Shown here is a 186-nucleotide sequence from Clostridium acetobutylicum, a member of the family "Lysine riboswitch aptamer". Riboswitches are metabolite binding domains within certain messenger RNAs that serve as precision sensors for their corresponding targets. Allosteric rearrangement of mRNA structure is mediated by ligand binding, and this results in modulation of gene expression. This family includes riboswitches that sense lysine in a number of genes involved in lysine metabolism, including lysC. The organism belongs to Clostridium acetobutylicum, within Bacteria. A search with the family's covariance model found it, with a score of 104 bits.

[Rfam]
RNA sequence: ACCUUUUGUAGAGGUGCUUUAAGUCAAGAGUAACCGUUUGGAGUUGGCAAACUUAGAUGAACGGUAAAAGGGGCUUUUAGCCGAAGCAUUUAGAUUGGCAGAUUUAUUUGCUGGCUUUUCAUACAACAUAUGAAUGGCUGUCACUUUAUUAGUUAGUUAUUAGGUAAGUGGAGCGCUACAAGGUAC
Numbered sequence: 001a002c003c004u005u006u007u008g009u010a011g012a013g014g015u016g017c018u019u020u021a022a023g024u025c026a027a028g029a030g031u032a033a034c035c036g037u038u039u040g041g042a043g044u045u046g047g048c049a050a051a052c053u054u055a056g057a058u059g060a061a062c063g064g065u066a067a068a069a070g071g072g073g074c075u076u077u078u079a080g081c082c083g084a085a086g087c088a089u090u091u092a093g094a095u096u097g098g099c100a101g102a103u104u105u106a107u108u109u110g111c112u113g114g115c116u117u118u119u120c121a122u123a124c125a126a127c128a129u130a131u132g133a134a135u136g137g138c139u140g141u142c143a144c145u146u147u148a149u150u151a152g153u154u155a156g157u158u159a160u161u162a163g164g165u166a167a168g169u170g171g172a173g174c175g176c177u178a179c180a181a182g183g184u185a186c
Stems, first nucleotide, its partner, number of pairs: 006181006016081003021076001023074003033065008085112004091106006113139004118134006141171006